[Rfam]
RNA sequence: GUCCUAUGAAGACUGCAAGACCUACCGAUAGGAAUUGCCAUUUGACACUAUAACCAUCAGUUGGCUCUCUCAGUUACAUGUGUCCAUCCAACCACAACCUUUGCGGUUUGGUCCGUGAUGAAGCUCACGCAUGUUGUUGUUUGAUUCAUCUGUGGUGUAAUUUAAAGUGGGUCUCUAAGGGAU
Numbered sequence: 001g002u003c004c005u006a007u008g009a010a011g012a013c014u015g016c017a018a019g020a021c022c023u024a025c026c027g028a029u030a031g032g033a034a035u036u037g038c039c040a041u042u043u044g045a046c047a048c049u050a051u052a053a054c055c056a057u058c059a060g061u062u063g064g065c066u067c068u069c070u071c072a073g074u075u076a077c078a079u080g081u082g083u084c085c086a087u088c089c090a091a092c093c094a095c096a097a098c099c100u101u102u103g104c105g106g107u108u109u110g111g112u113c114c115g116u117g118a119u120g121a122a123g124c125u126c127a128c129g130c131a132u133g134u135u136g137u138u139g140u141u142u143g144a145u146u147c148a149u150c151u152g153u154g155g156u157g158u159a160a161u162u163u164a165a166a167g168u169g170g171g172u173c174u175c176u177a178a179g180g181g182a183u
Stems, first nucleotide, its partner, number of pairs: 001183005074136001076134007083122001085120004091112004096108004
Small nucleolar RNA Z112: a 183-nucleotide sequence from Zea mays.
Rfam links the family to the GO terms nucleolus and RNA processing.
The family has 6 seed sequences and 427 matches in Rfam 15.1.
A search with the family's covariance model found it, with a score of 111 bits.